[Rfam]
Shown here is a 76-nucleotide RNA from Meloidogyne enterolobii, a member of the family "mir-252 microRNA precursor family".
Its Rfam clan is "mir-252 microRNA precursor family".
Taxonomically the source falls in Meloidogyne (Eukaryota, Metazoa, Eumetazoa, Chromadorea).
The family has 44 seed sequences and 422 matches in Rfam 15.1.
Its family is annotated with RISC complex and miRNA-mediated post-transcriptional gene silencing in the Gene Ontology.
RNA sequence: UUACAUGCCUAAGUAGUAGUGCCGCAUUUAACGGAAAUAAUUAGGUUUAAGUGCAGACUGCUGCUUAAGCACGGAG
Numbered sequence: 001u002u003a004c005a006u007g008c009c010u011a012a013g014u015a016g017u018a019g020u021g022c023c024g025c026a027u028u029u030a031a032c033g034g035a036a037a038u039a040a041u042u043a044g045g046u047u048u049a050a051g052u053g054c055a056g057a058c059u060g061c062u063g064c065u066u067a068a069g070c071a072c073g074g075a076g
Base pairs, nucleotide, nucleotide: 001076002075004073006071007070010067011066012065013064014063015062016061017060018059019058024054025053026052027051028050029049030048
Dot-bracket structure: ((.(.((..((((((((((....(((((((.................)))))))...))))))))))..)).).))